[Rfam]
RNA: Plastid-psbA-1 3UTR RNA
RNA sequence: UCAAAGCUCCAUAUUCAAAUUCAUAAUAUCCAAGUCUAGUCUAUAGGAGGUUUUGAAAAGAAAGGAAUAAUAAUCAUUUUCUUAUUUUAUCAAAAGGGUGUUAUUUUUUCUUU
Numbered sequence: 001u002c003a004a005a006g007c008u009c010c011a012u013a014u015u016c017a018a019a020u021u022c023a024u025a026a027u028a029u030c031c032a033a034g035u036c037u038a039g040u041c042u043a044u045a046g047g048a049g050g051u052u053u054u055g056a057a058a059a060g061a062a063a064g065g066a067a068u069a070a071u072a073a074u075c076a077u078u079u080u081c082u083u084a085u086u087u088u089a090u091c092a093a094a095a096g097g098g099u100g101u102u103a104u105u106u107u108u109u110c111u112u113u
Stems, first nucleotide, its partner, number of pairs: 008023001011020002061113007069105005075100003079096002082093002